This 83-nucleotide RNA sequence from Leptomonas seymouri belongs to the Rfam family "Trypanosomatid small nucleolar RNA 2". Rfam's curators put it in the seed alignment.
RNA sequence: GUGAAUGAUGAUGCGUGUAUUCUGCAAUGCUGACCUGUCUGACGAGAAGCAAUACUACUACUAUGACUAUUGGCAUCUGACAC
Number, nucleotide and partner (000 for none) at each position: 001g000002u000003g000004a000005a000006u000007g000008a000009u000010g077011a076012u075013g074014c073015g000016u000017g000018u000019a000020u000021u033022c032023u000024g030025c029026a000027a000028u000029g025030c024031u000032g022033a021034c049035c000036u047037g000038u045039c044040u000041g000042a000043c000044g039045a038046g000047a036048a000049g034050c072051a071052a070053u069054a068055c000056u000057a000058c000059u000060a000061c000062u000063a000064u000065g000066a000067c000068u054069a053070u052071u051072g050073g014074c013075a012076u011077c010078u000079g000080a000081c000082a000083c000
The family's RNA type in Rfam is C/D-box small nucleolar RNA.
Gene Ontology terms of the family: nucleolus and RNA processing.